The family of this 47-nucleotide RNA sequence from Luteibacter anthropi is "Guanidine-II riboswitch aptamer (mini-ykkC)".
It scores 49 bits against the family's covariance model.
Simpler in structure and has fewer highly conserved nucleotide positions than the ykkC-yxkD leader.
Taxonomically the source falls in Luteibacter (Bacteria, Pseudomonadota, Lysobacterales, Rhodanobacteraceae).
RNA sequence: CCAUGGGGACGACCCCAUGGCGCUCUUUCACUGCGGGGACGGCCCCG
Dot-bracket structure: ((((((((....)))))))).............(((((....)))))